A member of the RNA family "SAM riboswitch aptamer (S box leader)" from Mucilaginibacter mali, 119 nucleotides long.
[Rfam]
RNA sequence: UACUUAUCCAGAAAGACUGAGGGAAAGGCCCGAAGACGUCUUGGCAACCUGUACCGCCUUUAUCGGCCGUAACAAGGUGCUAAUUCCUGCUCCGUUACCAAAACGGGGAAAGAUAAGCG
Numbered sequence: 001u002a003c004u005u006a007u008c009c010a011g012a013a014a015g016a017c018u019g020a021g022g023g024a025a026a027g028g029c030c031c032g033a034a035g036a037c038g039u040c041u042u043g044g045c046a047a048c049c050u051g052u053a054c055c056g057c058c059u060u061u062a063u064c065g066g067c068c069g070u071a072a073c074a075a076g077g078u079g080c081u082a083a084u085u086c087c088u089g090c091u092c093c094g095u096u097a098c099c100a101a102a103a104c105g106g107g108g109a110a111a112g113a114u115a116a117g118c119g
Stems, first nucleotide, its partner, number of pairs: 001119001003117006013042005021031003026088003043081004048077002050074003085111001090108006